[Rfam]
A member of the RNA family "U1A polyadenylation inhibition element (PIE)" from Chrysochloris asiatica, 73 nucleotides long. It scores 82 bits against the family's covariance model. About the family: This family represents the U1A polyadenylation inhibition element (PIE). Lineage of the source: Eukaryota > Opisthokonta > Eumetazoa > Deuterostomia > Chrysochloris. Rfam 15.1 lists 510 matches to the family in 331 species. Gene Ontology term of the family: regulation of mRNA polyadenylation.
RNA sequence: CCACACAGCAUUAUACCCAGAGUCUGGUCCCAGACAUUGCACCUGGUGCUGUAGGCUGGAAUUAAAGUGUUUU
Numbered sequence: 001c002c003a004c005a006c007a008g009c010a011u012u013a014u015a016c017c018c019a020g021a022g023u024c025u026g027g028u029c030c031c032a033g034a035c036a037u038u039g040c041a042c043c044u045g046g047u048g049c050u051g052u053a054g055g056c057u058g059g060a061a062u063u064a065a066a067g068u069g070u071u072u073u
Stems, first nucleotide, its partner, number of pairs: 005052005017046004022035005